[Rfam]
RNA sequence: UGUCCUGUUUUAGUACUACACAUCUGCCUUCUUUCACAUAUGUGUGGCUAUGCUAACAGGAAAUAGUACUUGUUCAUCAUUGUCUGAAGGGGUCGAGCAGUCUCACUUCUGCCACUCCUAAUAAAAUGAUGGCACAAAACACA
Number, nucleotide and partner (000 for none) at each position: 001u000002g000003u000004c060005c059006u058007g057008u000009u000010u000011u000012a000013g000014u000015a000016c047017u046018a045019c044020a000021c000022a000023u000024c000025u000026g000027c000028c000029u000030u000031c000032u000033u000034u000035c000036a000037c000038a000039u000040a000041u000042g000043u000044g019045u018046g017047g016048c000049u000050a000051u000052g000053c000054u000055a000056a000057c007058a006059g005060g004061a000062a000063a000064u000065a000066g000067u000068a000069c000070u000071u000072g000073u000074u000075c000076a130077u129078c128079a127080u000081u000082g000083u000084c000085u000086g000087a000088a000089g000090g000091g000092g000093u000094c000095g117096a116097g115098c000099a000100g000101u000102c000103u000104c000105a000106c000107u000108u000109c000110u000111g000112c000113c000114a000115c097116u096117c095118c000119u000120a000121a000122u000123a000124a000125a000126a000127u079128g078129a077130u076131g000132g000133c000134a000135c000136a000137a000138a000139a000140c000141a000142c000143a000
Shown here is a 143-nucleotide RNA from Menidia menidia, a member of the family "Small nucleolar RNA SNORA29". ACA29 is a member of the H/ACA class of snoRNA that guide the sites of modification of uridines to pseudouridines. On this family, see Huttenhofer et al., EMBO J 2001: "RNomics: an experimental approach that identifies 201 candidates for novel, small, non-messenger RNAs in mouse". Lineage of the source: Eukaryota > Craniata > Actinopteri > Eurypterygia > Menidia. Rfam links the family to the GO terms RNA processing and nucleolus. Its Rfam clan is "SNORA20 clan". Pairs were carried over by alignment from the consensus structure, which was predicted with PFOLD.